[Rfam]
RNA sequence: AAAAAUUCAUUGACGAGAACGAGUACGUUAUAGAACUGUCCCCCAGAGAGUUGGCGAUUUGCUGAAAGCCAACGUUCAGUGCGUAGCCGAAAAUCAUCUCCGAGAAGUAGAACCGAAUGUUGCAGUAAGUUCUUACCGGCUGUCCCCCGUUACAAGGAACACGUAUCAUGUUGUACGUUGCAGAGCCGUAUACAUAUAGACUCAUUUCUACAUGUAUAAAUUAGGGUGGUAUCGCGGGUAAAUAUAACUCGUCCCUUUC
Numbered sequence: 001a002a003a004a005a006u007u008c009a010u011u012g013a014c015g016a017g018a019a020c021g022a023g024u025a026c027g028u029u030a031u032a033g034a035a036c037u038g039u040c041c042c043c044c045a046g047a048g049a050g051u052u053g054g055c056g057a058u059u060u061g062c063u064g065a066a067a068g069c070c071a072a073c074g075u076u077c078a079g080u081g082c083g084u085a086g087c088c089g090a091a092a093a094u095c096a097u098c099u100c101c102g103a104g105a106a107g108u109a110g111a112a113c114c115g116a117a118u119g120u121u122g123c124a125g126u127a128a129g130u131u132c133u134u135a136c137c138g139g140c141u142g143u144c145c146c147c148c149g150u151u152a153c154a155a156g157g158a159a160c161a162c163g164u165a166u167c168a169u170g171u172u173g174u175a176c177g178u179u180g181c182a183g184a185g186c187c188g189u190a191u192a193c194a195u196a197u198a199g200a201c202u203c204a205u206u207u208c209u210a211c212a213u214g215u216a217u218a219a220a221u222u223a224g225g226g227u228g229g230u231a232u233c234g235c236g237g238g239u240a241a242a243u244a245u246a247a248c249u250c251g252u253c254c255c256u257u258u259c
Base pairs, nucleotide, nucleotide: 007105008104015100016099017098018097027087028086029085030084031083041074050073051072052071053070054069055068108135109134110132111131112130113129137149138148139147189218190217191216192215193214194213195212223256224255225254226253234252235251236250237249238248
RNA: T-box leader
Organism: Bacillus anthracis